[Rfam]
Rfam assigns this 94-nucleotide sequence from Sphingomonas lutea to the family "Glycine riboswitch aptamer". The base pairs follow the family's consensus structure.
RNA sequence: GAAGGCCGCGCGGGAGAGUUUGCAGCGAAAGCUGCGACGCCGAAGGAGCAACCGCCCCCGGAAUCUCUCAGGCACCCAGGACCGCGCGCGCCUG
Number, nucleotide and partner (000 for none) at each position: 001g000002a000003a000004g000005g000006c000007c088008g087009c086010g085011c084012g083013g082014g000015a000016g000017a000018g000019u000020u037021u036022g035023c034024a000025g000026c000027g000028a000029a000030a000031g000032c000033u000034g023035c022036g021037a020038c000039g073040c072041c071042g069043a068044a000045g000046g067047a066048g065049c000050a000051a000052c060053c000054g000055c000056c000057c000058c000059c000060g052061g000062a000063a000064u000065c048066u047067c046068u043069c042070a000071g041072g040073c039074a000075c000076c000077c000078a000079g000080g000081a000082c013083c012084g011085c010086g009087c008088g007089c000090g000091c000092c000093u000094g000